S4-Bacteroidia ribosomal protein leader: a 33-nucleotide sequence. On this family, see Eckert and Weinberg, BMC Microbiol 2020: "Discovery of 20 novel ribosomal leader candidates in bacteria and archaea". Pairs were carried over by alignment from the consensus structure, which is taken from published work. The family's RNA type in Rfam is cis-regulatory leader. Rfam's curators put it in the seed alignment.
RNA sequence: GAUUACAUAAAUUUCUCUCUGUAAUCGCGGCUG
Numbered sequence: 001g002a003u004u005a006c007a008u009a010a011a012u013u014u015c016u017c018u019c020u021g022u023a024a025u026c027g028c029g030g031c032u033g
Base pairs, nucleotide, nucleotide: 001026002025003024004023005022006021007020